[Rfam]
RNA: Ribosomal protein L10 leader
Organism: Bacillus cytotoxicus
RNA sequence: GUGAAUUUAAAUAGUGUACCGUAGACAGUAGGUGCCAAAUUGGCUUAAUUUCCUACCUAGGUGUUAAUAUACGAAACGGAAUUUUUUUCUGUGACUAUAUGCCUCCAUGUCUACAAGUUAGCAUGGAGGUUUUUAGUGCACUUUC
Numbered sequence: 001g002u003g004a005a006u007u008u009a010a011a012u013a014g015u016g017u018a019c020c021g022u023a024g025a026c027a028g029u030a031g032g033u034g035c036c037a038a039a040u041u042g043g044c045u046u047a048a049u050u051u052c053c054u055a056c057c058u059a060g061g062u063g064u065u066a067a068u069a070u071a072c073g074a075a076a077c078g079g080a081a082u083u084u085u086u087u088u089c090u091g092u093g094a095c096u097a098u099a100u101g102c103c104u105c106c107a108u109g110u111c112u113a114c115a116a117g118u119u120a121g122c123a124u125g126g127a128g129g130u131u132u133u134u135a136g137u138g139c140a141c142u143u144u145c
Base pairs, nucleotide, nucleotide: 028056029055030054031053032052034044035043036042101130102129103128104127105126106125107124108123109122110121